[Rfam]
NiCo (Nickel/Cobalt) riboswitch aptamer: a 94-nucleotide RNA from Lachnotalea glycerini. For this family Rfam cites "Bacterial riboswitches cooperatively bind Ni(2+) or Co(2+) ions and control expression of heavy metal transporters" (Furukawa et al., Mol Cell, 2015). It scores 81 bits against the family's covariance model.

RNA sequence: ACAGUACAAACUGAGCAGGCGAUGAAUUACAUGUCAAUUCAUGGAGCCGGGCCAAUAUUGGCAGCAGAUGAAAUUCAACAUCUGUGGGACAGUA
Numbered sequence: 001a002c003a004g005u006a007c008a009a010a011c012u013g014a015g016c017a018g019g020c021g022a023u024g025a026a027u028u029a030c031a032u033g034u035c036a037a038u039u040c041a042u043g044g045a046g047c048c049g050g051g052c053c054a055a056u057a058u059u060g061g062c063a064g065c066a067g068a069u070g071a072a073a074u075u076c077a078a079c080a081u082c083u084g085u086g087g088g089a090c091a092g093u094a
Stems, first nucleotide, its partner, number of pairs: 010093004016088001018048003022042006051062004064085006